Shown here is a 177-nucleotide sequence from Streptohalobacillus salinus, a member of the family "Lysine riboswitch aptamer".
A search with the family's covariance model found it, with a score of 94 bits.
Taxonomically the source falls in Streptohalobacillus (Bacteria, Bacillati, Bacilli, Caryophanales).

RNA sequence: CGAUGAGAUAGAGGCGCAGUUUAAAAAAAGUAGUGAUUGUGAGUUAGGUCAGAUGUUGAUCAAUCAUGAAAGGGUUAAAUUGCCGAAGCAUGACCAUGGACCAAAUGGUAGUGCUGGUAUGCAGCUGAAUAAGCGUCAUACUGUCAUGACUUUAAAACGUGAUGGGCUGUUGAUCGA
Numbered sequence: 001c002g003a004u005g006a007g008a009u010a011g012a013g014g015c016g017c018a019g020u021u022u023a024a025a026a027a028a029a030g031u032a033g034u035g036a037u038u039g040u041g042a043g044u045u046a047g048g049u050c051a052g053a054u055g056u057u058g059a060u061c062a063a064u065c066a067u068g069a070a071a072g073g074g075u076u077a078a079a080u081u082g083c084c085g086a087a088g089c090a091u092g093a094c095c096a097u098g099g100a101c102c103a104a105a106u107g108g109u110a111g112u113g114c115u116g117g118u119a120u121g122c123a124g125c126u127g128a129a130u131a132a133g134c135g136u137c138a139u140a141c142u143g144u145c146a147u148g149a150c151u152u153u154a155a156a157a158c159g160u161g162a163u164g165g166g167c168u169g170u171u172g173a174u175c176g177a
Stems, first nucleotide, its partner, number of pairs: 007171005016083009033067007087115005093109005116142006124134003144162005